RNA sequence: ACCUUCUGUACCUACUGAACUGGUAUCAGUGUGUCCACAGAAUACUGGCUCAGUUCAGCAGGAACAGGAG
Numbered sequence: 001a002c003c004u005u006c007u008g009u010a011c012c013u014a015c016u017g018a019a020c021u022g023g024u025a026u027c028a029g030u031g032u033g034u035c036c037a038c039a040g041a042a043u044a045c046u047g048g049c050u051c052a053g054u055u056c057a058g059c060a061g062g063a064a065c066a067g068g069a070g
Stems, first nucleotide, its partner, number of pairs: 003070004008065002011062003015058009026048005

Shown here is a 70-nucleotide RNA from Clupea harengus, a member of the family "mir-24 microRNA precursor family". Rfam describes the family as follows. This family represents the microRNA (miRNA) mir-24 family. miRNAs are transcribed as ~70nt precursors (modelled here) and subsequently processed by the Dicer enzyme to give a ~22nt product. In this case the mature sequence comes from the 3' arm of the precursor. The extents of the hairpin precursors are not generally known and are estimated based on hairpin prediction. On this family, see Lagos-Quintana et al., Science 2001: "Identification of novel genes coding for small expressed RNAs". NCBI's taxonomy places the organism under Eukaryota, Opisthokonta, Actinopterygii, Clupeoidei, Clupea. The family's consensus secondary structure was predicted with RNAalifold. Gene Ontology terms of the family: RISC complex and miRNA-mediated post-transcriptional gene silencing.